This 131-nucleotide sequence from Piliocolobus tephrosceles belongs to the Rfam family "U11 spliceosomal RNA". A search with the family's covariance model found it, with a score of 53 bits. Lineage of the source: Eukaryota > Mammalia > Eutheria > Haplorrhini > Piliocolobus.

RNA sequence: AAAAAAAGCUGCUGCUGUGGGUGAUACAUGCAGGGCAACUUGAUUGCUCUUAGUGCAGAACUGACAUCAAGGAAUUUUGGAAGUAUAACUUUUUGGUAGGUGGAUAGCUGGUUGUUAAUUAGUCCAUUCUC
Numbered sequence: 001a002a003a004a005a006a007a008g009c010u011g012c013u014g015c016u017g018u019g020g021g022u023g024a025u026a027c028a029u030g031c032a033g034g035g036c037a038a039c040u041u042g043a044u045u046g047c048u049c050u051u052a053g054u055g056c057a058g059a060a061c062u063g064a065c066a067u068c069a070a071g072g073a074a075u076u077u078u079g080g081a082a083g084u085a086u087a088a089c090u091u092u093u094u095g096g097u098a099g100g101u102g103g104a105u106a107g108c109u110g111g112u113u114g115u116u117a118a119u120u121a122g123u124c125c126a127u128u129c130u131c
Stems, first nucleotide, its partner, number of pairs: 008084003012080001013026002016023002027055003032050007056079005062073001103131002107128001109126003115121001